Shown here is a 374-nucleotide sequence from Nosocomiicoccus massiliensis, a member of the family "Bacterial RNase P class B". It scores 305 bits against the family's covariance model. It is annotated as a ribozyme. Clan: RNaseP clan. Pairs were carried over by alignment from the consensus structure, which is taken from published work. Lineage of the source: Bacteria > Bacillati > Caryophanales > Staphylococcaceae > Nosocomiicoccus.

RNA sequence: UGGAUCGGAUAAUCGCUAAGGAAACUUAGAGGAAAGUCCAUGCUCACACAGUCUGAGAUGAUUGUAGUGUUCGUGCUUGACGAAACAAUAAGUCAAGGUAGCAAAUUUUGCUAACGGCAGUUUAACUUUCUAAGUCGUAAGAUAUGAAAGAAAACUUGAAAGUGCCACAGUGACGAUGUUUUACGGAAACGUAAAAAGUGGAACGGGUAAACCCCUCGAGUGAGCAAUCCAAAUUUGGUAGGAGCACUUUUUCUCUGGAAUUCAACAGAAGAAAGAGAUAUUACGAAAGUAAUAUAGACAGAUGAUUAUCACUAUUGUGUGAGUGUAAUCUAGUGCACGUUAGAACACAUUAGUACAGAACAUGGCUUAUAGAG
Numbered sequence: 001u002g003g004a005u006c007g008g009a010u011a012a013u014c015g016c017u018a019a020g021g022a023a024a025c026u027u028a029g030a031g032g033a034a035a036g037u038c039c040a041u042g043c044u045c046a047c048a049c050a051g052u053c054u055g056a057g058a059u060g061a062u063u064g065u066a067g068u069g070u071u072c073g074u075g076c077u078u079g080a081c082g083a084a085a086c087a088a089u090a091a092g093u094c095a096a097g098g099u100a101g102c103a104a105a106u107u108u109u110g111c112u113a114a115c116g117g118c119a120g121u122u123u124a125a126c127u128u129u130c131u132a133a134g135u136c137g138u139a140a141g142a143u144a145u146g147a148a149a150g151a152a153a154a155c156u157u158g159a160a161a162g163u164g165c166c167a168c169a170g171u172g173a174c175g176a177u178g179u180u181u182u183a184c185g186g187a188a189a190c191g192u193a194a195a196a197a198g199u200g201g202a203a204c205g206g207g208u209a210a211a212c213c214c215c216u217c218g219a220g221u222g223a224g225c226a227a228u229c230c231a232a233a234u235u236u237g238g239u240a241g242g243a244g245c246a247c248u249u250u251u252u253c254u255c256u257g258g259a260a261u262u263c264a265a266c267a268g269a270a271g272a273a274a275g276a277g278a279u280a281u282u283a284c285g286a287a288a289g290u291a292a293u294a295u296a297g298a299c300a301g302a303u304g305a306u307u308a309u310c311a312c313u314a315u316u317g318u319g320u321g322a323g324u325g326u327a328a329u330c331u332a333g334u335g336c337a338c339g340u341u342a343g344a345a346c347a348c349a350u351u352a353g354u355a356c357a358g359a360a361c362a363u364g365g366c367u368u369a370u371a372g373a374g
Stems, first nucleotide, its partner, number of pairs: 005373002007370001008310007016029005034368003038365005043224005048065006071219003075215001076097006098115001099113006116214002119156004127149004134143003162212002164208003179196007228243003247277007278295006312353003316349005